[Rfam]
RNA sequence: GGCUCUGUGAUUACCUGCCUGAAUUGGGCAAUAUACGCUAUUCCGAUUCAUAAAAUGAGCAGAGGUUUUCUGGAUAAAGAAUGAGAGCU
Numbered sequence: 001g002g003c004u005c006u007g008u009g010a011u012u013a014c015c016u017g018c019c020u021g022a023a024u025u026g027g028g029c030a031a032u033a034u035a036c037g038c039u040a041u042u043c044c045g046a047u048u049c050a051u052a053a054a055a056u057g058a059g060c061a062g063a064g065g066u067u068u069u070c071u072g073g074a075u076a077a078a079g080a081a082u083g084a085g086a087g088c089u
Stems, first nucleotide, its partner, number of pairs: 001089005